[Rfam]
RNA sequence: UAAUCGGAUAGAGGUGCGAUAUUUAUAAGUAGAAUGGUGGAGGUGAGCACUAUGAAACCGUUUGAAAGGAGAUAUUGCCGAAACUUAUAGUAAGGCUACUUUAUUAUAAGUUGGUUAUAUAUAUAAUAUAUAUAUAACUGUCACAUAAGAUGUGGGGAGCUAUCAAACGU
Number, nucleotide and partner (000 for none) at each position: 001u000002a000003a000004u000005c000006g000007g164008a163009u162010a161011g160012a000013g000014g000015u000016g078017c077018g076019a075020u074021a073022u072023u071024u070025a000026u000027a000028a000029g000030u000031a000032g063033a062034a061035u060036g059037g058038u057039g000040g000041a000042g000043g000044u000045g000046a000047g000048c000049a000050c000051u000052a000053u000054g000055a000056a000057a038058c037059c036060g035061u034062u033063u032064g000065a000066a000067a000068g000069g000070a024071g023072a022073u021074a020075u019076u018077g017078c016079c000080g000081a000082a112083a111084c110085u109086u108087a107088u106089a105090g104091u103092a102093a101094g000095g000096c000097u000098a000099c000100u000101u093102u092103a091104u090105u089106a088107u087108a086109a085110g084111u083112u082113g139114g138115u137116u136117a135118u134119a133120u132121a131122u130123a129124u000125a000126a000127u000128a000129u123130a122131u121132a120133u119134a118135u117136a116137a115138c114139u113140g000141u155142c154143a153144c152145a151146u150147a000148a000149g000150a146151u145152g144153u143154g142155g141156g000157g000158a000159g000160c011161u010162a009163u008164c007165a000166a000167a000168c000169g000170u000

The record is a 170-nucleotide RNA sequence from Clostridium tyrobutyricum, which matches "Lysine riboswitch aptamer" in Rfam. NCBI's taxonomy places the organism under Bacteria, Bacillati, Bacillota, Clostridiaceae, Clostridium tyrobutyricum. It scores 116 bits against the family's covariance model. Rfam describes the family as follows. Riboswitches are metabolite binding domains within certain messenger RNAs that serve as precision sensors for their corresponding targets. Allosteric rearrangement of mRNA structure is mediated by ligand binding, and this results in modulation of gene expression. This family includes riboswitches that sense lysine in a number of genes involved in lysine metabolism, including lysC.